[Rfam]
RNA: Mammalian CPEB3 ribozyme
Organism: Alligator mississippiensis
RNA sequence: GGUUGAUUGCAAGUCUGAAGUGCUCAUGGCACAGUCCUGUCAGAUUCUAGCAAAUCUGCAAAUUCUGCU
Numbered sequence: 001g002g003u004u005g006a007u008u009g010c011a012a013g014u015c016u017g018a019a020g021u022g023c024u025c026a027u028g029g030c031a032c033a034g035u036c037c038u039g040u041c042a043g044a045u046u047c048u049a050g051c052a053a054a055u056c057u058g059c060a061a062a063u064u065c066u067g068c069u
Base pairs, nucleotide, nucleotide: 001036002035004034009068010067011066017065018064019063020032021031022030041058042057043056044055045054046053